[Rfam]
RNA sequence: GACGCAUUCCAUUCACAACGGAUCGUCCGGCACGUACCUGCCGGUGAAGGAGCAAAGA
Numbered sequence: 001g002a003c004g005c006a007u008u009c010c011a012u013u014c015a016c017a018a019c020g021g022a023u024c025g026u027c028c029g030g031c032a033c034g035u036a037c038c039u040g041c042c043g044g045u046g047a048a049g050g051a052g053c054a055a056a057g058a
Base pairs, nucleotide, nucleotide: 009050010049012048013047014046015045027044028043029042030041031040032039

This 58-nucleotide RNA sequence from Agromyces rhizosphaerae belongs to the Rfam family "msiK RNA". Rfam 15.1 lists 1,374 matches to the family in 1,364 species.